[Rfam]
RNA sequence: GGGGACCUUCGGGGCCCUAUAACCAUCUCGGCCUCAACAUGUUGAAGUCGGGCACAAGCAAAACGGAAGACAGAAA
Numbered sequence: 001g002g003g004g005a006c007c008u009u010c011g012g013g014g015c016c017c018u019a020u021a022a023c024c025a026u027c028u029c030g031g032c033c034u035c036a037a038c039a040u041g042u043u044g045a046a047g048u049c050g051g052g053c054a055c056a057a058g059c060a061a062a063a064c065g066g067a068a069g070a071c072a073g074a075a076a
Stems, first nucleotide, its partner, number of pairs: 001018004006014003027052006